[Rfam]
RNA sequence: GAACAACAUCUAUAGAGAAGCUUAUGCUUCACCAACCUGCCAAGAUCUGGCAAAGGUGGUUCAACGAUGUGGCUUUAAUUAGCAACAAUAAGAUCGUAG
Numbered sequence: 001g002a003a004c005a006a007c008a009u010c011u012a013u014a015g016a017g018a019a020g021c022u023u024a025u026g027c028u029u030c031a032c033c034a035a036c037c038u039g040c041c042a043a044g045a046u047c048u049g050g051c052a053a054a055g056g057u058g059g060u061u062c063a064a065c066g067a068u069g070u071g072g073c074u075u076u077a078a079u080u081a082g083c084a085a086c087a088a089u090a091a092g093a094u095c096g097u098a099g
Stems, first nucleotide, its partner, number of pairs: 006070005015030001018029004031060003036056003039051003044094001046092001072083003
This 99-nucleotide RNA belongs to the Rfam family "SAM-I/IV (S-adenosyl methionine) riboswitch aptamer". For this family Rfam cites "The aptamer core of SAM-IV riboswitches mimics the ligand-binding site of SAM-I riboswitches" (Weinberg et al., RNA, 2008). Its Rfam clan is "SAM clan". Its family is annotated with regulation of gene expression and S-adenosylmethionine metabolic process in the Gene Ontology.